[Rfam]
RNA sequence: GGGACACCCUUAUGGAGUAGGACUUGCUUCAGUAGGGCUUUGGUGCUCACUGACUCUGUCCCUUGAGUGUGCUUCU
Numbered sequence: 001g002g003g004a005c006a007c008c009c010u011u012a013u014g015g016a017g018u019a020g021g022a023c024u025u026g027c028u029u030c031a032g033u034a035g036g037g038c039u040u041u042g043g044u045g046c047u048c049a050c051u052g053a054c055u056c057u058g059u060c061c062c063u064u065g066a067g068u069g070u071g072c073u074u075c076u
Stems, first nucleotide, its partner, number of pairs: 001075003005071003009067004014062002017059003021056002029053005035047002037044002

Rfam assigns this 76-nucleotide sequence from Myotis davidii to the family "mir-9229 microRNA precursor family". Rfam 15.1 lists 27,225 matches to the family in 9 species. Pairs were carried over by alignment from the consensus structure, which was predicted with RNAalifold. Gene Ontology terms of the family: miRNA-mediated post-transcriptional gene silencing and RISC complex.